RNA: TPP riboswitch aptamer (THI element)
Organism: Acidocella sp. MX-AZ02
RNA sequence: AGCAUCACGCCGGGGUGUCCGCAUCGUGCGGGCUGAGAUCAUACCCGUAGAACCUGCCUGGGUCAUGCCAGCGAAGGGAGAGCGCCAAUGAGCCUC
Number, nucleotide and partner (000 for none) at each position: 001a000002g000003c000004a000005u000006c084007a000008c082009g000010c080011c047012g046013g045014g044015g000016u041017g033018u032019c031020c030021g029022c000023a000024u000025c000026g000027u000028g000029c021030g020031g019032g018033c017034u000035g000036a000037g000038a000039u000040c000041a016042u000043a000044c014045c013046c012047g011048u000049a000050g000051a000052a000053c077054c076055u075056g000057c000058c071059u070060g069061g068062g000063u000064c000065a000066u000067g000068c061069c060070a059071g058072c000073g000074a000075a055076g054077g053078g000079a000080g010081a000082g008083c000084g006085c000086c000087a000088a000089u000090g000091a000092g000093c000094c000095u000096c000